[Rfam]
RNA sequence: UGACCGCUUCGUAAUUUUAUGCGAAGCCGAGGCCAUACGGACAGCCGGGUCAACUGCCGA
Numbered sequence: 001u002g003a004c005c006g007c008u009u010c011g012u013a014a015u016u017u018u019a020u021g022c023g024a025a026g027c028c029g030a031g032g033c034c035a036u037a038c039g040g041a042c043a044g045c046c047g048g049g050u051c052a053a054c055u056g057c058c059g060a
Stems, first nucleotide, its partner, number of pairs: 001052005006027008
Description: Shown here is a 60-nucleotide sequence, a member of the family "Streptococcus sRNA SpF59 (ldcC RNA)". On this family, see Mann et al., PLoS Pathog 2012: "Control of virulence by small RNAs in Streptococcus pneumoniae". The sequence is in the family's curated seed alignment.